[Rfam]
RNA sequence: CGAAGCCCUCAGGAACCUGCCGCGGAUCGCCCGCGGUGCUGCCACCGCUCUCCUUCAGUGGAUCGGCCCGCGGAGGUUCCUGAGGGUUUCG
Numbered sequence: 001c002g003a004a005g006c007c008c009u010c011a012g013g014a015a016c017c018u019g020c021c022g023c024g025g026a027u028c029g030c031c032c033g034c035g036g037u038g039c040u041g042c043c044a045c046c047g048c049u050c051u052c053c054u055u056c057a058g059u060g061g062a063u064c065g066g067c068c069c070g071c072g073g074a075g076g077u078u079c080c081u082g083a084g085g086g087u088u089u090c091g
Stems, first nucleotide, its partner, number of pairs: 001091018020073006029067003033048006051062003
A member of the RNA family "DUF3800-IV RNA", 91 nucleotides long. By type it is a small RNA.